[Rfam]
RNA sequence: AAAUUCGGAUUAUUGCGGUCGAAAGGCUGAGGAAAGUCCAUGCUCGCACAAGCUGAAAUGCUUGUAGUGUUCGUGCUUAGCGAAACAAUAAGCUAAGGCAGUUGAAAAACUGACGGCAGAAAAAAUAGCUAAGGUGUAAACUAUGCUAAAGUAUUCUUGAAAGUGCCACAGUGACGAAGUAAUUUUGGAAACAAGAUUAGUGGAACGUUGGUAAACCCCUCGAGCGAGCAACCCAAACUUUGGUAGGGGCACUCUUAAUAGGAAUAACAACAAAAAAAGAGGUACGUCCAUCUGACGUACAGACAGAUAAUAAUCCAGAACAUUUUCCUUCCGAGAAAUGUUUGGACAAAACAUGGCUUAUAGAA
Numbered sequence: 001a002a003a004u005u006c007g008g009a010u011u012a013u014u015g016c017g018g019u020c021g022a023a024a025g026g027c028u029g030a031g032g033a034a035a036g037u038c039c040a041u042g043c044u045c046g047c048a049c050a051a052g053c054u055g056a057a058a059u060g061c062u063u064g065u066a067g068u069g070u071u072c073g074u075g076c077u078u079a080g081c082g083a084a085a086c087a088a089u090a091a092g093c094u095a096a097g098g099c100a101g102u103u104g105a106a107a108a109a110c111u112g113a114c115g116g117c118a119g120a121a122a123a124a125a126u127a128g129c130u131a132a133g134g135u136g137u138a139a140a141c142u143a144u145g146c147u148a149a150a151g152u153a154u155u156c157u158u159g160a161a162a163g164u165g166c167c168a169c170a171g172u173g174a175c176g177a178a179g180u181a182a183u184u185u186u187g188g189a190a191a192c193a194a195g196a197u198u199a200g201u202g203g204a205a206c207g208u209u210g211g212u213a214a215a216c217c218c219c220u221c222g223a224g225c226g227a228g229c230a231a232c233c234c235a236a237a238c239u240u241u242g243g244u245a246g247g248g249g250c251a252c253u254c255u256u257a258a259u260a261g262g263a264a265u266a267a268c269a270a271c272a273a274a275a276a277a278a279g280a281g282g283u284a285c286g287u288c289c290a291u292c293u294g295a296c297g298u299a300c301a302g303a304c305a306g307a308u309a310a311u312a313a314u315c316c317a318g319a320a321c322a323u324u325u326u327c328c329u330u331c332c333g334a335g336a337a338a339u340g341u342u343u344g345g346a347c348a349a350a351a352c353a354u355g356g357c358u359u360a361u362a363g364a365a
Stems, first nucleotide, its partner, number of pairs: 004365003007361001008315007016029005034359003038356005043228005048065006071223003075219001076097006098114001099112005115218002118157004126148004133142003163216002165212003180199008232248003252281005282300006318343008
RNA: Bacterial RNase P class B
Organism: Carnobacteriaceae bacterium zg-C25